[Rfam]
RNA: L13-Bacteroidia ribosomal protein leader
Organism: Prevotella sp. BV3P1
RNA sequence: GGGGAUGAACUUAGAGUCCCCUGUGCGGAUGUGUUAAUAGUGGUGCUUUUGGCCGAGCAUCACGGUUAGUGAAUC
Numbered sequence: 001g002g003g004g005a006u007g008a009a010c011u012u013a014g015a016g017u018c019c020c021c022u023g024u025g026c027g028g029a030u031g032u033g034u035u036a037a038u039a040g041u042g043g044u045g046c047u048u049u050u051g052g053c054c055g056a057g058c059a060u061c062a063c064g065g066u067u068a069g070u071g072a073a074u075c
Base pairs, nucleotide, nucleotide: 001021002020003019004018005017006016034069035068036067037066038065040063041062042061043060044059045058046057047056048055